[Rfam]
RNA sequence: CCCAGACCAGUGACGGCCUGUUUGUAAACCCAUUAUUAAAUGGGGUGGACAGGCCUGAUGACCCCCUGGC
Numbered sequence: 001c002c003c004a005g006a007c008c009a010g011u012g013a014c015g016g017c018c019u020g021u022u023u024g025u026a027a028a029c030c031c032a033u034u035a036u037u038a039a040a041u042g043g044g045g046u047g048g049a050c051a052g053g054c055c056u057g058a059u060g061a062c063c064c065c066c067u068g069g070c
Stems, first nucleotide, its partner, number of pairs: 002069004015055010030044002
Dot-bracket structure: .((((.........((((((((((.....((...........)).))))))))))..........)))).
RNA: Selenocysteine insertion sequence 1
Organism: Anguilla anguilla